[Rfam]
RNA sequence: GUUAUUUGAGGUAGACAAUAGUGCCAUCCACACACCUUUAAAAUGUCAAAAGAAAUGCAGGACUUGGUACACCUGCCAAAUAGC
Numbered sequence: 001g002u003u004a005u006u007u008g009a010g011g012u013a014g015a016c017a018a019u020a021g022u023g024c025c026a027u028c029c030a031c032a033c034a035c036c037u038u039u040a041a042a043a044u045g046u047c048a049a050a051a052g053a054a055a056u057g058c059a060g061g062a063c064u065u066g067g068u069a070c071a072c073c074u075g076c077c078a079a080a081u082a083g084c
Stems, first nucleotide, its partner, number of pairs: 001084008011031002014028002021070005033052001034046002037043001057076005
Dot-bracket structure: ((((((((..[[.[[.....(((((.]].]].(((.(.....).)).....)....[[[[[....))))).]]]]]))))))))
The family of this 84-nucleotide RNA is "skipping-rope RNA". The family's consensus secondary structure is taken from published work.